Shown here is a 76-nucleotide RNA from Streptomyces bingchenggensis, a member of the family "nrdJ RNA". The base pairs follow the family's consensus structure, which is taken from published work. The family's RNA type in Rfam is small RNA.
RNA sequence: GCUUGCCGGGGGCGAGAUGCCCCCGGAUGAACGACAUACACCGUGCCAUGGGAAGAAAUGGGCACAUCAGGGCGUU
Number, nucleotide and partner (000 for none) at each position: 001g000002c029003u000004u027005g000006c026007c025008g024009g023010g022011g021012g020013c019014g018015a000016g000017a000018u014019g013020c012021c011022c010023c009024c008025g007026g006027a004028u000029g002030a000031a000032c000033g000034a000035c000036a000037u000038a000039c000040a000041c000042c000043g065044u064045g063046c062047c061048a000049u000050g000051g000052g000053a000054a000055g000056a000057a000058a000059u000060g000061g047062g046063c045064a044065c043066a000067u000068c000069a000070g000071g000072g000073c000074g000075u000076u000